This 104-nucleotide RNA sequence from Vallitalea guaymasensis belongs to the Rfam family "THF (Tetrahydrofolate) riboswitch aptamer". The match comes from Rfam's covariance-model search (69 bits). From the family's description: Tetrahydrofolate (THF) riboswitch was first reported for Ames et al. as an RNA motif in 5' untranslated (5'-UTR)regions of folate transport and biosynthesis genes in Firmicutes genomes.

RNA sequence: AGCAGAGCAGAUAUUACGCGUUAAGUGUUAGAGGAUGGGAAGUUUCCUCUAAACGAAAAACCUACAUGGUGUUAGGUUUGCGGUGUGAUAUUGUUUCCGCUGUU
Numbered sequence: 001a002g003c004a005g006a007g008c009a010g011a012u013a014u015u016a017c018g019c020g021u022u023a024a025g026u027g028u029u030a031g032a033g034g035a036u037g038g039g040a041a042g043u044u045u046c047c048u049c050u051a052a053a054c055g056a057a058a059a060a061c062c063u064a065c066a067u068g069g070u071g072u073u074a075g076g077u078u079u080g081c082g083g084u085g086u087g088a089u090a091u092u093g094u095u096u097c098c099g100c101u102g103u104u
Base pairs, nucleotide, nucleotide: 001104002103003102004101005100010092011091012090013089014088015087016086017085018084019082020081021080025054026053028052029051030050031049032048033047034046038098039097040096041095042094058079059078060077061076062075063074064073